Source information:
The family of this 568-nucleotide part of an RNA from Natronospirillum operosum is "Bacterial small subunit ribosomal RNA". A reference for the family is Yusupov et al. (2001), "Crystal structure of the ribosome at 5.5 A resolution", Science. Rfam 15.1 lists 42,628 matches to the family in 10,626 species. The source organism's lineage runs through Bacteria, Pseudomonadati, Gammaproteobacteria, Oceanospirillales and Natronospirillum. A search with the family's covariance model found it, with a score of 1549 bits.
RNA sequence: AAACUGAAGAGUUUGAUCAUGGCUCAGAUUGAACGCUGGCGGCAGGCCUAACACAUGCAAGUCGAGCGGAAACGAAGGGGUGCUUGCACCUCAGGCGUCGAGCGGCGGACGGGUGAGUAACGCGUAGAAAUCUACCCGAUAGUUGGGGAUAGCCCGGAGAAAUCCGGAUUAAUACCGAAUAAGCUCUUCGGAGGAAAGUGGGGGAUCUUUCGGGGCCUCACGCUAUGGGAUGAGUCUGCGUCGGAUUAGCUGGUUGGUGGGGUAAAGGCUUACCAAGGCGACGAUCCGUAGCUGGUCUGAGAGGAUGAUCAGCCACACUGGGACUGAGACACGGCCCAGACUCCUACGGGAGGCAGCAGUGGGGAAUAUUGGACAAUGGGGGCAACCCUGAUCCAGCCAUGCCGCGUGUGUGAAGAAGGCUUUCGGGUUGUAAAGCACUUUCAGUGGUGAGGAAGGCUUACGGUUAAUAGCUGUGAGAACUUGACGUUAGCCACAGAAGAAGCACCGGCUAACUCCGUGCCAGCAGCCGCGGUAAUACGGAGGGUGCGAGCGUUAAUCGGAAUUACUG
Numbered sequence: 001a002a003a004c005u006g007a008a009g010a011g012u013u014u015g016a017u018c019a020u021g022g023c024u025c026a027g028a029u030u031g032a033a034c035g036c037u038g039g040c041g042g043c044a045g046g047c048c049u050a051a052c053a054c055a056u057g058c059a060a061g062u063c064g065a066g067c068g069g070a071a072a073c074g075a076a077g078g079g080g081u082g083c084u085u086g087c088a089c090c091u092c093a094g095g096c097g098u099c100g101a102g103c104g105g106c107g108g109a110c111g112g113g114u115g116a117g118u119a120a121c122g123c124g125u126a127g128a129a130a131u132c133u134a135c136c137c138g139a140u141a142g143u144u145g146g147g148g149a150u151a152g153c154c155c156g157g158a159g160a161a162a163u164c165c166g167g168a169u170u171a172a173u174a175c176c177g178a179a180u181a182a183g184c185u186c187u188u189c190g191g192a193g194g195a196a197a198g199u200g201g202g203g204g205a206u207c208u209u210u211c212g213g214g215g216c217c218u219c220a221c222g223c224u225a226u227g228g229g230a231u232g233a234g235u236c237u238g239c240g241u242c243g244g245a246u247u248a249g250c251u252g253g254u255u256g257g258u259g260g261g262g263u264a265a266a267g268g269c270u271u272a273c274c275a276a277g278g279c280g281a282c283g284a285u286c287c288g289u290a291g292c293u294g295g296u297c298u299g300a301g302a303g304g305a306u307g308a309u310c311a312g313c314c315a316c317a318c319u320g321g322g323a324c325u326g327a328g329a330c331a332c333g334g335c336c337c338a339g340a341c342u343c344c345u346a347c348g349g350g351a352g353g354c355a356g357c358a359g360u361g362g363g364g365a366a367u368a369u370u371g372g373a374c375a376a377u378g379g380g381g382g383c384a385a386c387c388c389u390g391a392u393c394c395a396g397c398c399a400u401g402c403c404g405c406g407u408g409u410g411u412g413a414a415g416a417a418g419g420c421u422u423u424c425g426g427g428u429u430g431u432a433a434a435g436c437a438c439u440u441u442c443a444g445u446g447g448u449g450a451g452g453a454a455g456g457c458u459u460a461c462g463g464u465u466a467a468u469a470g471c472u473g474u475g476a477g478a479a480c481u482u483g484a485c486g487u488u489a490g491c492c493a494c495a496g497a498a499g500a501a502g503c504a505c506c507g508g509c510u511a512a513c514u515c516c517g518u519g520c521c522a523g524c525a526g527c528c529g530c531g532g533u534a535a536u537a538c539g540g541a542g543g544g545u546g547c548g549a550g551c552g553u554u555a556a557u558c559g560g561a562a563u564u565a566c567u568g
Stems, first nucleotide, its partner, number of pairs: 009025005027558004032554006039405006045398002047363001052361003056358003061106003066103002069099002077092006113316003122241007131233002136229002139226004144178001146176002152169001154167005184193003198221006242288003249279003254276008291313004295306004318339005341352004369395001371394003377390005408438004418429004442499001444494005452485001458479002502547005513542005523530002